[Rfam]
Nucleotides: 112
Base pairs, nucleotide, nucleotide: 001078002077003076004075009038011037012036013035014034015033016032021030022029039065040064041063044061045060046059048056049055081101082100083099084098085097086096087095088094
Number, partner (000 for none) and nucleotide at each position: 001078g002077g003076u004075c005000a006000u007000g008000a009038g010000u011037u012036c013035c014034a015033g016032c017000a018000u019000c020000a021030a022029g023000c024000c025000c026000c027000g028000g029022c030021u031000u032016g033015c034014u035013g036012g037011a038009c039065g040064g041063c042000a043000a044061c045060c046059c047000u048056c049055c050000g051000a052000c053000g054000c055049g056048g057000u058000g059046g060045g061044g062000u063041g064040c065039u066000c067000c068000g069000g070000g071000u072000g073000a074000a075004g076003a077002c078001c079000u080000g081101g082100c083099g084098g085097u086096u087095u088094u089000g090000u091000c092000c093000g094088a095087a096086a097085g098084c099083c100082g101081c102000a103000a104000g105000c106000g107000c108000g109000c110000g111000c112000c